[Rfam]
Nucleotides: 567
Stems, first nucleotide, its partner, number of pairs: 009025005027557004032553006039404006045397002047362001052360003056357003061106003066103002069099002076093007113315003122240007131232002136228007144178001146176002152169001154167005184193003198220006241287003248278003253275008290312004294305004317338005340351004368394001370393003376389005407437004417428004441498001443493005451484001457477006501546005512541005522529002
Number, partner (000 for none) and nucleotide at each position: 001000a002000a003000a004000c005000c006000g007000a008000a009025g010024a011023g012022u013021u014000u015000g016000a017000u018000c019000c020000u021013g022012g023011c024010u025009c026000a027557g028556a029555u030554u031000g032553a033552a034551c035550g036549c037548u038000g039404g040403c041402g042401g043400c044399a045397u046396g047362c048000c049000u050000a051000a052360c053359a054358c055000a056357u057356g058355c059000a060000a061106g062105u063104c064000g065000a066103g067102c068000g069099g070098c071000a072000g073000c074000g075000c076093g077092g078091a079090a080089g081088a082087g083000c084000u085000u086000g087082c088081u089080c090079u091078u092077c093076u094000g095000g096000c097000g098070g099069c100000g101000a102067g103066c104063g105062g106061c107000g108000g109000a110000c111000g112000g113315g114314u115313g116000a117000g118000u119000a120000a121000c122240g123239c124238g125237u126236g127235g128234g129000a130000a131232u132231c133000u134000g135000c136228c137227c138226u139225u140224u141223g142222g143000u144178g145000g146176g147175g148000g149000a150000u151000a152169g153000c154167c155166c156165g157164g158163g159000g160000a161000a162000a163158c164157c165156c166155g167154g168000a169152u170000u171000a172000a173000u174000a175147c176146c177000g178144c179000a180000u181000a182000a183000g184193c185192c186191c187000u188000a189000c190000g191186g192185g193184g194000g195000a196000a197000a198220g199219u200218g201217g202216g203215c204000c205000u206000c207000u208000g209000a210000u211000u212000c213000a214000a215203g216202c217201u218200c219199a220198c221000g222142c223141c224140g225139a226138a227137g228136g229000a230000u231132g232131a233000g234128c235127c236126c237125g238124c239123g240122u241287c242286c243285g244000a245000u246000u247000a248278g249277c250276u251000a252000g253275u254274u255273g256272g257271u258270g259269g260268g261000g262000u263000a264000a265000a266000g267000g268260c269259c270258u271257a272256c273255c274254a275253a276250g277249g278248c279000g280000a281000c282000g283000a284000u285243c286242g287241g288000u289000a290312g291311c292310u293309g294305g295304c296303c297302u298000g299000a300000g301000a302297g303296g304295g305294u306000g307000g308000u309293c310292a311291g312290c313115c314114a315113c316000a317338c318337u319336g320335g321334g322000a323000c324000u325000g326000a327000g328000a329000c330000a331000c332000g333000g334321c335320c336319c337318a338317g339000a340351c341350u342349c343348c344000u345000a346000c347000g348343g349342g350341a351340g352000g353000c354000a355058g356057c357056a358054g359053u360052g361000g362047g363000g364000a365000a366000u367000a368394u369000u370393g371392g372391a373000c374000a375000a376389u377388g378387g379386g380385c381000g382000c383000a384000a385380g386379c387378c388377u389376g390000a391372u392371c393370c394368a395000g396046c397045a398000a399044u400043g401042c402041c403040g404039c405000g406000u407437g408436u409435g410434u411000g412000a413000a414000g415000a416000a417428g418427g419426c420425c421000u422000g423000c424000g425420g426419g427418u428417u429000g430000u431000a432000a433000a434410g435409c436408a437407c438000u439000u440000u441498c442000a443493u444492u445491g446490g447489g448000g449000a450000g451484g452000a453000a454000a455000g456000u457477u458476g459475c460474a461473c462472g463000g464000u465000u466000a467000a468000u469000a470000g471000c472462u473461g474460u475459g476458c477457g478000a479000g480000u481000u482000g483000a484451c485000g486000u487000u488000a489447c490446c491445c492444a493443a494000a495000g496000a497000a498441g499000a500000a501546g502545c503544g504543c505542c506000g507000g508000c509000a510000a511000a512541c513540u514539u515538c516537g517000u518000g519000c520000c521000a522529g523528c524000a525000g526000c527000c528523g529522c530000g531000g532000u533000a534000a535000u536000a537516c538515g539514a540513a541512g542505g543504g544503c545502g546501c547000a548037a549036g550035c551034g552033u553032u554030a555029a556028u557027c558000g559000g560000a561000a562000u563000c564000a565000c566000u567000g